The record is a 93-nucleotide RNA from Dorcoceras hygrometricum, which matches "Small nucleolar RNA Z161/Z228" in Rfam. Gene Ontology terms of the family: RNA processing and nucleolus. On this family, see Chen et al., Nucleic Acids Res 2003: "The high diversity of snoRNAs in plants: identification and comparative study of 120 snoRNA genes from Oryza sativa". The base pairs follow the family's consensus structure, which was predicted with PFOLD. It is annotated as a C/D-box small nucleolar RNA. Lineage of the source: Eukaryota > Streptophytina > Lamiales > Didymocarpoideae > Dorcoceras.
RNA sequence: AAGCCAGAUGAUGAAUAAGGAUUUAAAAUCUCACGACGGUCGUCUGAGACUUUGUGUCGCUGCUGAUGUGAUAAUCCUUUUUCUCUGAUGGUU
Numbered sequence: 001a002a003g004c005c006a007g008a009u010g011a012u013g014a015a016u017a018a019g020g021a022u023u024u025a026a027a028a029u030c031u032c033a034c035g036a037c038g039g040u041c042g043u044c045u046g047a048g049a050c051u052u053u054g055u056g057u058c059g060c061u062g063c064u065g066a067u068g069u070g071a072u073a074a075u076c077c078u079u080u081u082u083c084u085c086u087g088a089u090g091g092u093u
Stems, first nucleotide, its partner, number of pairs: 001093002004090001048058003